[Rfam]
RNA: mir-17 microRNA precursor family
Organism: Menidia menidia
RNA sequence: CGCUGUGCGAUAAAGUGCUUACAGUGCAGGUAGCGAUGCAAACCCGGCCUACUGCAGUGUGAGCACUUGUUUCCCACGCCG
Dot-bracket structure: ...((((.((..(((((((((((.(((.(((((...............)))))))).)))))))))))...)).))))...